[Rfam]
RNA sequence: CCGGCAAUGAUGAUUGGCGCAGGGGUACGGACCUCAGCAGAAUCAUGGGAGCUGAAUGUAAACGUUCCUCUGUCCUGCGCGUGGCGGGAUGUCUUGGGACGUUUACAUGAGAAUGGUGCCUAACUCUGAGCCGC
Numbered sequence: 001c002c003g004g005c006a007a008u009g010a011u012g013a014u015u016g017g018c019g020c021a022g023g024g025g026u027a028c029g030g031a032c033c034u035c036a037g038c039a040g041a042a043u044c045a046u047g048g049g050a051g052c053u054g055a056a057u058g059u060a061a062a063c064g065u066u067c068c069u070c071u072g073u074c075c076u077g078c079g080c081g082u083g084g085c086g087g088g089a090u091g092u093c094u095u096g097g098g099a100c101g102u103u104u105a106c107a108u109g110a111g112a113a114u115g116g117u118g119c120c121u122a123a124c125u126c127u128g129a130g131c132c133g134c
Stems, first nucleotide, its partner, number of pairs: 002133004
The family of this 134-nucleotide sequence from Sphenodon punctatus is "Small nucleolar RNA SNORD94". Rfam links the family to the GO terms nucleolus and RNA processing. The source organism's lineage runs through Eukaryota, Eumetazoa, Bilateria, Sarcopterygii and Sphenodon. By type it is a C/D-box small nucleolar RNA.